RNA sequence: GUGAAAUUGAUCACAUACAAACAUAUACCCCUUUGUUUGACCGUGAAAAAUUUCUCCCAUCCCCUUUGUUCGUAAGAAAAGGCCCUCACUUUUGUGAGGGCCUUUUC
Numbered sequence: 001g002u003g004a005a006a007u008u009g010a011u012c013a014c015a016u017a018c019a020a021a022c023a024u025a026u027a028c029c030c031c032u033u034u035g036u037u038u039g040a041c042c043g044u045g046a047a048a049a050a051u052u053u054c055u056c057c058c059a060u061c062c063c064c065u066u067u068g069u070u071c072g073u074a075a076g077a078a079a080a081g082g083c084c085c086u087c088a089c090u091u092u093u094g095u096g097a098g099g100g101c102c103u104u105u106u107c
Base pairs, nucleotide, nucleotide: 003054004053005052006051007050008049011046012045013044014043018039019038020037021036022035023034070075079104080103081102082101083100084099085098086097087096088095089094
RNA: RNA Staph. aureus E (RoxS)